[Rfam]
RNA sequence: CGGCCCGGCCGCGACUGGCGAGGGUGGACCACCACCGGGGAGCGGCCGCCGAUCAUCGGACCGGGACGUCGCCCGCCUGGGCGUCCCGC
Numbered sequence: 001c002g003g004c005c006c007g008g009c010c011g012c013g014a015c016u017g018g019c020g021a022g023g024g025u026g027g028a029c030c031a032c033c034a035c036c037g038g039g040g041a042g043c044g045g046c047c048g049c050c051g052a053u054c055a056u057c058g059g060a061c062c063g064g065g066a067c068g069u070c071g072c073c074c075g076c077c078u079g080g081g082c083g084u085c086c087c088g089c
Stems, first nucleotide, its partner, number of pairs: 006048007015039002017077004024035004066084005